[Rfam]
Rfam assigns this 156-nucleotide sequence from Phreatobacter aquaticus to the family "6S / SsrS RNA". E. coli 6S RNA was the first non coding RNA to be sequenced, but its function was unknown until recently. It consists of 184 nucleotides that fold into an extended hairpin structure with a large single-stranded internal bulge. The match comes from Rfam's covariance-model search (77 bits). Taxonomically the source falls in Phreatobacter (Bacteria, Pseudomonadota, Alphaproteobacteria, Phreatobacteraceae).

RNA sequence: ACGGAGCUGCGACGUUCGUCAGGGCACAAAUUUCCUCGGGGCCUUAUCGAUCUCUAGGGAGCUGUCCCUGCCCUUGUCCGUGGACUUGGGCACACGGCGCCCACCUACUUAGGUAGGUUCCCGGGAUCGCUUGUCCAACGACGAAGCGGCUCCACU
Numbered sequence: 001a002c003g004g005a006g007c008u009g010c011g012a013c014g015u016u017c018g019u020c021a022g023g024g025c026a027c028a029a030a031u032u033u034c035c036u037c038g039g040g041g042c043c044u045u046a047u048c049g050a051u052c053u054c055u056a057g058g059g060a061g062c063u064g065u066c067c068c069u070g071c072c073c074u075u076g077u078c079c080g081u082g083g084a085c086u087u088g089g090g091c092a093c094a095c096g097g098c099g100c101c102c103a104c105c106u107a108c109u110u111a112g113g114u115a116g117g118u119u120c121c122c123g124g125g126a127u128c129g130c131u132u133g134u135c136c137a138a139c140g141a142c143g144a145a146g147c148g149g150c151u152c153c154a155c156u
Stems, first nucleotide, its partner, number of pairs: 003153008013143003017140003033126004038121006057102003061098005070091004076085001